[Rfam]
RNA sequence: UGGGAAUGAUGACCAAUACUUUGGUCCGUGUUCUUGAUCCGCGUGAUCGCGAUGAAAUGAAACAAAGUUCUGACCCG
Numbered sequence: 001u002g003g004g005a006a007u008g009a010u011g012a013c014c015a016a017u018a019c020u021u022u023g024g025u026c027c028g029u030g031u032u033c034u035u036g037a038u039c040c041g042c043g044u045g046a047u048c049g050c051g052a053u054g055a056a057a058u059g060a061a062a063c064a065a066a067g068u069u070c071u072g073a074c075c076c077g
Stems, first nucleotide, its partner, number of pairs: 001077004